[Rfam]
The record is a 79-nucleotide sequence from Callipepla squamata, which matches "Small nucleolar RNA SNORD79" in Rfam.

Nucleotides: 079
Stems, first nucleotide, its partner, number of pairs: 001079007
Number, partner (000 for none) and nucleotide at each position: 001079u002078a003077c004076u005075g006074u007073u008000c009000g010000u011000g012000a013000u014000g015000a016000u017000g018000a019000g020000u021000u022000c023000u024000a025000a026000g027000c028000a029000a030000u031000g032000g033000g034000a035000a036000u037000c038000u039000c040000u041000c042000u043000g044000a045000a046000a047000g048000a049000a050000a051000c052000u053000g054000a055000g056000g057000a058000g059000u060000a061000c062000u063000c064000u065000u066000g067000a068000u069000c070000u071000g072000a073007a074006a075005c076004a077003g078002u079001a
Description: Gene Ontology terms of the family: nucleolus and RNA processing. The family's RNA type in Rfam is C/D-box small nucleolar RNA. From the family's description: snoRNA U79 or Z22 is found in intron 7 of the gas5 gene in humans and is also present in mice.